[Rfam]
RNA sequence: GAAAGCAGGCGAGGUGAUCGCGACCAACCCUGGGCUUCGUGCACAGGCGAGGUUGAGGAAAGUCCGGGCUCCCCGAUGGCCAGGCUUGCUGGGUAACGCCCAGUGCGGGUGACCGUGAGGAGAGUGCCACAGAAACACACCGCCGAUGGCCCCAUGGGAGCAAUCCCUUUGGCACAGGCAAGGGUGCAAAGGUGCGGUAAGAGCGCACCAGCAGCAUCGAGAGGUGCUGGCUCGGUAAACCCCGGCCGGGAGCAAGGCCCAGGAACAACGGGUGGCCAUCAUCCCCGUUCCGCCUUUGUGAGCCGCUCGAGGUCGUCGGUAACGGCGAUCCCAGAUAGAUGAUCACCCCCCUUCCGCGGAAGGGAGAACAGAACCCGGCUUAUGUCCUGCUUUCACCC
Numbered sequence: 001g002a003a004a005g006c007a008g009g010c011g012a013g014g015u016g017a018u019c020g021c022g023a024c025c026a027a028c029c030c031u032g033g034g035c036u037u038c039g040u041g042c043a044c045a046g047g048c049g050a051g052g053u054u055g056a057g058g059a060a061a062g063u064c065c066g067g068g069c070u071c072c073c074c075g076a077u078g079g080c081c082a083g084g085c086u087u088g089c090u091g092g093g094u095a096a097c098g099c100c101c102a103g104u105g106c107g108g109g110u111g112a113c114c115g116u117g118a119g120g121a122g123a124g125u126g127c128c129a130c131a132g133a134a135a136c137a138c139a140c141c142g143c144c145g146a147u148g149g150c151c152c153c154a155u156g157g158g159a160g161c162a163a164u165c166c167c168u169u170u171g172g173c174a175c176a177g178g179c180a181a182g183g184g185u186g187c188a189a190a191g192g193u194g195c196g197g198u199a200a201g202a203g204c205g206c207a208c209c210a211g212c213a214g215c216a217u218c219g220a221g222a223g224g225u226g227c228u229g230g231c232u233c234g235g236u237a238a239a240c241c242c243c244g245g246c247c248g249g250g251a252g253c254a255a256g257g258c259c260c261a262g263g264a265a266c267a268a269c270g271g272g273u274g275g276c277c278a279u280c281a282u283c284c285c286c287g288u289u290c291c292g293c294c295u296u297u298g299u300g301a302g303c304c305g306c307u308c309g310a311g312g313u314c315g316u317c318g319g320u321a322a323c324g325g326c327g328a329u330c331c332c333a334g335a336u337a338g339a340u341g342a343u344c345a346c347c348c349c350c351c352u353u354c355c356g357c358g359g360a361a362g363g364g365a366g367a368a369c370a371g372a373a374c375c376c377g378g379c380u381u382a383u384g385u386c387c388u389g390c391u392u393u394c395a396c397c398c
Base pairs, nucleotide, nucleotide: 001394002393003392004391005390006389007388008387009386011383013347014346015345016344017343018342019341021055022054023053024052025051029047030046031045032044060381061380062379064378065377066376067375068374069252070251071250072249078279083247084246085245087244088243089103090102091101092100093099104118105116106115107114108113119242120241124240125239126236127235128234140183141182142179143178144177147174148173150171191209192208193207194206195205196204211231212229213228214227215226216225217224218223256304257303258302262291263290264289265288266287270284271283272282273281274280311330312329313328314327315326316325317324318323
The record is a 398-nucleotide sequence from Synechococcus sp. WH 7803, which matches "Bacterial RNase P class A" in Rfam. By type it is a ribozyme. Rfam's curators write: Ribonuclease P (RNase P) is a ubiquitous endoribonuclease, found in archaea, bacteria and eukarya as well as chloroplasts and mitochondria.